Guanidine-II riboswitch aptamer (mini-ykkC): a 47-nucleotide sequence from Pseudomonas guineae. A search with the family's covariance model found it, with a score of 43 bits. Rfam 15.1 lists 1,589 matches to the family in 1,229 species.
RNA sequence: AAUCACGGACGACCGUGGUGCAGACCGAAUACUGCGGGACGGCCCGC
Numbered sequence: 001a002a003u004c005a006c007g008g009a010c011g012a013c014c015g016u017g018g019u020g021c022a023g024a025c026c027g028a029a030u031a032c033u034g035c036g037g038g039a040c041g042g043c044c045c046g047c
Base pairs, nucleotide, nucleotide: 002019003018004017005016006015007014008013034047035046036045037044038043
The family's consensus secondary structure is taken from published work.
About the family: Simpler in structure and has fewer highly conserved nucleotide positions than the ykkC-yxkD leader.
Lineage of the source: Bacteria > Gammaproteobacteria > Pseudomonadales > Pseudomonadaceae > Pseudomonas.